Shown here is a 134-nucleotide RNA sequence from Oryctolagus cuniculus, a member of the family "Small nucleolar RNA SNORA20". ACA20 is a member of the H/ACA class of snoRNA that guide the sites of modification of uridines to pseudouridines. A search with the family's covariance model found it, with a score of 94 bits. The organism belongs to Oryctolagus, within Eukaryota. The family's consensus secondary structure was predicted with ILM.
RNA sequence: CUUCCCAUCUAUUUGCUGCUGUAGUCUCUCCAUGCUAUGAGCAGUUAUACGCGUGGGAUAAAAUAACACUGGGCCAUUGUAACUAAAUGGAGGUGACGUAACUGAGUCAUCUCUGCUCCGUGGUCUAGACAUGG
Number, nucleotide and partner (000 for none) at each position: 001c000002u000003u058004c057005c056006c055007a054008u053009c000010u000011a000012u000013u000014u000015g045016c044017u043018g042019c041020u040021g000022u037023a036024g000025u000026c034027u000028c000029u000030c000031c000032a000033u000034g026035c000036u023037a022038u000039g000040a020041g019042c018043a017044g016045u015046u000047a000048u000049a000050c000051g000052c000053g008054u007055g006056g005057g004058a003059u000060a000061a000062a000063a000064u000065a000066a000067c000068a000069c128070u127071g126072g125073g124074c123075c122076a121077u000078u120079g119080u000081a117082a000083c000084u000085a000086a000087a000088u000089g000090g113091a112092g111093g110094u109095g108096a107097c106098g000099u104100a000101a000102c000103u000104g099105a000106g097107u096108c095109a094110u093111c092112u091113c090114u000115g000116c000117u081118c000119c079120g078121u076122g075123g074124u073125c072126u071127a070128g069129a000130c000131a000132u000133g000134g000